[Rfam]
RNA: STnc500 Hfq binding RNA
Organism: Salmonella enterica
RNA sequence: AUAGUUCCUGCUCUUGAGGGCUGAUUGCGGCACAAAGCCUGCAAUAUCGAACAGAGCAGAGCCUAUCAAGUCUGCGGCAUGAAAAAAAGCGCGAUGUAAGUAAAGGAGGGGGAAUAUUUACAUCGCGUUGCCAACUUAUGACAGAACAUCACUGGAGAGUAAUCUGUUUGCUCUUACGGUGUUUAUAGCGCGCCAUCUGUCGGAUGGUUUAUAUCUGGCCCGGUAUUGUCGCCCCGCGCGUUGGCGUCACCGUGUGCUGUGUCGGUAUAGCGUGGUAUCAUGAAA
Number, nucleotide and partner (000 for none) at each position: 001a000002u000003a000004g000005u000006u000007c000008c077009u076010g075011c074012u000013c070014u069015u068016g067017a066018g064019g063020g062021c061022u060023g000024a045025u044026u043027g042028c041029g039030g038031c037032a000033c000034a000035a000036a000037g031038c030039c029040u000041g028042c027043a026044a025045u024046a000047u055048c054049g000050a000051a000052c000053a000054g048055a047056g000057c000058a000059g000060a022061g021062c020063c019064u018065a000066u017067c016068a015069a014070g013071u000072c000073u000074g011075c010076g009077g008078c282079a281080u280081g279082a278083a000084a000085a000086a000087a000088a129089g128090c127091g126092c125093g124094a123095u122096g121097u120098a119099a118100g117101u116102a115103a000104a000105g000106g000107a000108g000109g000110g000111g000112g000113a000114a000115u102116a101117u100118u099119u098120a097121c096122a095123u094124c093125g092126c091127g090128u089129u088130g276131c275132c274133a000134a000135c000136u000137u000138a000139u000140g000141a000142c000143a000144g184145a183146a182147c181148a180149u179150c178151a000152c000153u000154g000155g175156a174157g173158a172159g171160u170161a169162a000163u000164c000165u000166g000167u000168u000169u161170g160171c159172u158173c157174u156175u155176a000177c000178g150179g149180u148181g147182u146183u145184u144185a000186u000187a000188g000189c000190g000191c000192g208193c207194c206195a205196u204197c203198u000199g000200u000201c000202g000203g197204a196205u195206g194207g193208u192209u000210u000211a000212u000213a000214u000215c000216u000217g000218g000219c000220c000221c000222g000223g000224u000225a000226u000227u000228g000229u000230c000231g000232c000233c000234c000235c000236g000237c000238g000239c000240g000241u000242u000243g000244g000245c000246g000247u000248c000249a000250c000251c000252g000253u000254g000255u000256g000257c000258u000259g000260u000261g000262u000263c000264g000265g000266u000267a000268u000269a000270g000271c000272g000273u000274g132275g131276u130277a000278u082279c081280a080281u079282g078283a000284a000285a000